[Rfam]
Overview:
The family of this 132-nucleotide sequence from Heterocephalus glaber is "Small nucleolar RNA SNORA71". The source organism's lineage runs through Eukaryota, Opisthokonta, Chordata, Rodentia and Heterocephalus. The members of this family belong to the H/ACA class of snoRNAs which bind a number of proteins (including dyskerin, Gar1p and Nop10p) to form snoRNP complexes. For this family Rfam cites "The family of box ACA small nucleolar RNAs is defined by an evolutionarily conserved secondary structure and ubiquitous sequence elements essential for RNA accumulation" (Ganot et al., Genes Dev, 1997).
RNA sequence: CCCUGUAUUCGAAAGUGAUCUUGGGCUGCCUGUGCCCUGGUCAUUGAGUGCAGGGAAAGGAACUGCUGAAAGCCUUUCCCCGUGUUUGGAGGGCUCACUCCUGUCCCCUCCAAACUCUGGAGCUUUCUUACA
Numbered sequence: 001c002c003c004u005g006u007a008u009u010c011g012a013a014a015g016u017g018a019u020c021u022u023g024g025g026c027u028g029c030c031u032g033u034g035c036c037c038u039g040g041u042c043a044u045u046g047a048g049u050g051c052a053g054g055g056a057a058a059g060g061a062a063c064u065g066c067u068g069a070a071a072g073c074c075u076u077u078c079c080c081c082g083u084g085u086u087u088g089g090a091g092g093g094c095u096c097a098c099u100c101c102u103g104u105c106c107c108c109u110c111c112a113a114a115c116u117c118u119g120g121a122g123c124u125u126u127c128u129u130a131c132a
Stems, first nucleotide, its partner, number of pairs: 001055009014045007023037004065129001068127006084115005089109001091107003
The base pairs follow the family's consensus structure, which was predicted with PFOLD.
The family's RNA type in Rfam is H/ACA-box small nucleolar RNA.
Rfam 15.1 lists 1,805 matches to the family in 606 species.